Overview
The family of this 81-nucleotide sequence from a Paenibacillaceae bacterium is "pemK RNA". It scores 68 bits against the family's covariance model. The organism belongs to Paenibacillaceae, within Bacteria. The family's RNA type in Rfam is cis-regulatory element.
RNA sequence: AUAAUGAUACUUCUGUCCAGCCACAGCUUAUCGCAACGGGGGCAGCUCGCAGAGAACCUGGGAGAGGUUAGAAACCUAUGA
Numbered sequence: 001a002u003a004a005u006g007a008u009a010c011u012u013c014u015g016u017c018c019a020g021c022c023a024c025a026g027c028u029u030a031u032c033g034c035a036a037c038g039g040g041g042g043c044a045g046c047u048c049g050c051a052g053a054g055a056a057c058c059u060g061g062g063a064g065a066g067g068u069u070a071g072a073a074a075c076c077u078a079u080g081a
Stems, first nucleotide, its partner, number of pairs: 012078001013045006046064003050060003065077003